RNA sequence: GCCAGGUGCGGUGGCGGCCUGUAGUCCCAGCUACUCGGAAGGCUGAGGCUGGCGGAUCGCUUGAGCCCAGUUCUGGGCUGUAGUGCGCUGUACCCAUCUGGUGUCUGCCCUAAGUUUGGCAUCAAUAUGGUGACCUCCCGGGAGGGAGGGACCACCAGGUUGCCUAAGAAGGGGUGAACGGGAGCAACUCAAAGCUCCCGUGCUGAUCAGCAGUGGGAGCGCACCUGUGGAUAGCCACUGCACUCCAGCCUGGGCAACAUAGUGAGACCCUGUCUCUG
Numbered sequence: 001g002c003c004a005g006g007u008g009c010g011g012u013g014g015c016g017g018c019c020u021g022u023a024g025u026c027c028c029a030g031c032u033a034c035u036c037g038g039a040a041g042g043c044u045g046a047g048g049c050u051g052g053c054g055g056a057u058c059g060c061u062u063g064a065g066c067c068c069a070g071u072u073c074u075g076g077g078c079u080g081u082a083g084u085g086c087g088c089u090g091u092a093c094c095c096a097u098c099u100g101g102u103g104u105c106u107g108c109c110c111u112a113a114g115u116u117u118g119g120c121a122u123c124a125a126u127a128u129g130g131u132g133a134c135c136u137c138c139c140g141g142g143a144g145g146g147a148g149g150g151a152c153c154a155c156c157a158g159g160u161u162g163c164c165u166a167a168g169a170a171g172g173g174g175u176g177a178a179c180g181g182g183a184g185c186a187a188c189u190c191a192a193a194g195c196u197c198c199c200g201u202g203c204u205g206a207u208c209a210g211c212a213g214u215g216g217g218a219g220c221g222c223a224c225c226u227g228u229g230g231a232u233a234g235c236c237a238c239u240g241c242a243c244u245c246c247a248g249c250c251u252g253g254g255c256a257a258c259a260u261a262g263u264g265a266g267a268c269c270c271u272g273u274c275u276c277u278g
Stems, first nucleotide, its partner, number of pairs: 001043003004020004025040001027038001045276005051270002057265005065255006073248005079242007087235005093229001098227001100225005105217002108215001110213002114208001116206007123162004128157005135150003139146001164168001171198005180190002

The family of this 278-nucleotide RNA from Pipistrellus kuhlii is "Metazoan signal recognition particle RNA". About the family: The signal recognition particle (SRP) is a universally conserved ribonucleoprotein. NCBI's taxonomy places the organism under Eukaryota, Deuterostomia, Craniata, Gnathostomata, Pipistrellus. The match comes from Rfam's covariance-model search (159 bits). The family's RNA type in Rfam is non-coding RNA gene. Rfam links the family to the GO terms signal recognition particle, endoplasmic reticulum targeting and SRP-dependent cotranslational protein targeting to membrane, signal sequence recognition.